[Rfam]
RNA sequence: GGGUGGAGUAGAGGUGCGGGCAACAGAAGUACUUUCAGGGAGAGUGGUAUUGAUGAACUGAAAGAAAAGGGUUGACCGCCGAAGUGCGAAGAAUUACCGGAUUCUUGGCACUGGUUUUAAGUCGAAUAGGCUUAAGACUGUCACCAAUAUUUUUGGUGGAGCGCUAUCUCAUCU
Numbered sequence: 001g002g003g004u005g006g007a008g009u010a011g012a013g014g015u016g017c018g019g020g021c022a023a024c025a026g027a028a029g030u031a032c033u034u035u036c037a038g039g040g041a042g043a044g045u046g047g048u049a050u051u052g053a054u055g056a057a058c059u060g061a062a063a064g065a066a067a068a069g070g071g072u073u074g075a076c077c078g079c080c081g082a083a084g085u086g087c088g089a090a091g092a093a094u095u096a097c098c099g100g101a102u103u104c105u106u107g108g109c110a111c112u113g114g115u116u117u118u119a120a121g122u123c124g125a126a127u128a129g130g131c132u133u134a135a136g137a138c139u140g141u142c143a144c145c146a147a148u149a150u151u152u153u154u155g156g157u158g159g160a161g162c163g164c165u166a167u168c169u170c171a172u173c174u
Base pairs, nucleotide, nucleotide: 006169008167009166010165011164016079017078018077019076021074022073023072024071032064033063034062035061036060037059038058083112084111085110086109087108089106090105091104092103093102094101113139114138115137116136117135118134119133120132121131122130123129141159142158143157144156145155146154147153
RNA: Lysine riboswitch aptamer
Organism: Allolucifera butyrica